Cyano-2 RNA: a 205-nucleotide RNA sequence. The sequence is in the family's curated seed alignment.
[Rfam]
RNA sequence: GGCAGUACCGGGAGACUGACCCGUAGCUAGCAGACAAUUCAGUCCCAGUACUCGGCAAGCGUGAUGGGGCUUGCUUUCAGCGCUCUUCAGAUCUCUGAAAAGAGUCGGUGCAUUCAUUAAAGCUACGUAAUGCGACGAUCUUGUUUGCAGCUGAUACCGCAUCGCUCGGGGAGAACGUCGUUCUCCUCGAGGGUCCGUGGCCCCA
Numbered sequence: 001g002g003c004a005g006u007a008c009c010g011g012g013a014g015a016c017u018g019a020c021c022c023g024u025a026g027c028u029a030g031c032a033g034a035c036a037a038u039u040c041a042g043u044c045c046c047a048g049u050a051c052u053c054g055g056c057a058a059g060c061g062u063g064a065u066g067g068g069g070c071u072u073g074c075u076u077u078c079a080g081c082g083c084u085c086u087u088c089a090g091a092u093c094u095c096u097g098a099a100a101a102g103a104g105u106c107g108g109u110g111c112a113u114u115c116a117u118u119a120a121a122g123c124u125a126c127g128u129a130a131u132g133c134g135a136c137g138a139u140c141u142u143g144u145u146u147g148c149a150g151c152u153g154a155u156a157c158c159g160c161a162u163c164g165c166u167c168g169g170g171g172a173g174a175a176c177g178u179c180g181u182u183c184u185c186c187u188c189g190a191g192g193g194u195c196c197g198u199g200g201c202c203c204c205a
Stems, first nucleotide, its partner, number of pairs: 004028003007024001009023004030081002033078002036075001041071007049063002150198002153195002157192002160189001168188008
Dot-bracket structure: ...((((.((((.......))))).))).((.((.(....(((((((.((...........)).)))))))...).)).))....................................................................((.((..((.(.......((((((((.....))))))))).)).)).)).......
Rfam classes the family as a small RNA.